RNA sequence: GACGGUCUUCGGUAGUGGCUGCCGGGCCCCCGAGAGGGUGGGCCGGCCGCUUCGAUCGACGGCCGUA
Numbered sequence: 001g002a003c004g005g006u007c008u009u010c011g012g013u014a015g016u017g018g019c020u021g022c023c024g025g026g027c028c029c030c031c032g033a034g035a036g037g038g039u040g041g042g043c044c045g046g047c048c049g050c051u052u053c054g055a056u057c058g059a060c061g062g063c064c065g066u067a
Base pairs, nucleotide, nucleotide: 002066003065004064005063006062007061009059010058011057012056013055017051018050019049021047022046023045024044025043027041028040
The record is a 67-nucleotide RNA from Mycolicibacterium fallax, which matches "Actino-pnp RNA" in Rfam. The family's consensus secondary structure is taken from published work. Lineage of the source: Bacteria > Actinomycetota > Mycobacteriales > Mycobacterium > Mycobacterium (subgen. Mycolicibacterium). The match comes from Rfam's covariance-model search (58 bits). It is annotated as a cis-regulatory element.